Shown here is a 91-nucleotide RNA sequence from Cotesia congregata, a member of the family "Small nucleolar RNA snR60/Z15/Z230/Z193/J17". Clan: SNORD77 clan. The family has 23 seed sequences and 3,592 matches in Rfam 15.1. On this family, see Chen et al., Nucleic Acids Res 2003: "The high diversity of snoRNAs in plants: identification and comparative study of 120 snoRNA genes from Oryza sativa". Rfam links the family to the GO terms RNA processing and nucleolus. Taxonomically the source falls in Cotesia (Eukaryota, Eumetazoa, Bilateria, Endopterygota).
RNA sequence: UUAUAAUUUAUAAUGAUGACUUCAUAGUUCAGCUGAUUUAACGUUGAUGUAUUACUAAGCAAUGUCUUUCGCUCCUAUCUGAUAAUCAAUA
Numbered sequence: 001u002u003a004u005a006a007u008u009u010a011u012a013a014u015g016a017u018g019a020c021u022u023c024a025u026a027g028u029u030c031a032g033c034u035g036a037u038u039u040a041a042c043g044u045u046g047a048u049g050u051a052u053u054a055c056u057a058a059g060c061a062a063u064g065u066c067u068u069u070c071g072c073u074c075c076u077a078u079c080u081g082a083u084a085a086u087c088a089a090u091a
Base pairs, nucleotide, nucleotide: 004088006086007085008084